[Rfam]
Annotation: A member of the RNA family "RT-14 RNA", 159 nucleotides long. It is annotated as a small RNA. The sequence is in the family's curated seed alignment.

RNA sequence: CUCUAAUAUCAAGCUAGAUUAUAUAUUUUAAGGAAUAUAUACAAUUGCAGUAUUAGAUAUGUAAAGGAAGUUUACUCCUUCUUAAAAGUAAAGUUUUAAGUAAAUAUGGAAAAGAAAACAUUUGUAUUAGUAGGUAAUUACUGAAUAUACAGAUGUUUU
Numbered sequence: 001c002u003c004u005a006a007u008a009u010c011a012a013g014c015u016a017g018a019u020u021a022u023a024u025a026u027u028u029u030a031a032g033g034a035a036u037a038u039a040u041a042c043a044a045u046u047g048c049a050g051u052a053u054u055a056g057a058u059a060u061g062u063a064a065a066g067g068a069a070g071u072u073u074a075c076u077c078c079u080u081c082u083u084a085a086a087a088g089u090a091a092a093g094u095u096u097u098a099a100g101u102a103a104a105u106a107u108g109g110a111a112a113a114g115a116a117a118a119c120a121u122u123u124g125u126a127u128u129a130g131u132a133g134g135u136a137a138u139u140a141c142u143g144a145a146u147a148u149a150c151a152g153a154u155g156u157u158u159u
Base pairs, nucleotide, nucleotide: 003056004055005054006053007052008051009050013048014047020041021040022039023038024037025036026035027034028033081100082099083098084097085096086095087094115159116158117157118156119155120154121153122152123151124150125149126148127147134141135140